[Rfam]
RNA sequence: CAUGCCCGGGAUCGCCCUCCGUCAGCGCGUCGCGCCCACGGGGGCCGCCCCG
Numbered sequence: 001c002a003u004g005c006c007c008g009g010g011a012u013c014g015c016c017c018u019c020c021g022u023c024a025g026c027g028c029g030u031c032g033c034g035c036c037c038a039c040g041g042g043g044g045c046c047g048c049c050c051c052g
Base pairs, nucleotide, nucleotide: 016044017043018042019041020040021039022038025035026034027033028032
The family of this 52-nucleotide RNA sequence from Thetidibacter halocola is "ffh sRNA". The family's RNA type in Rfam is small RNA.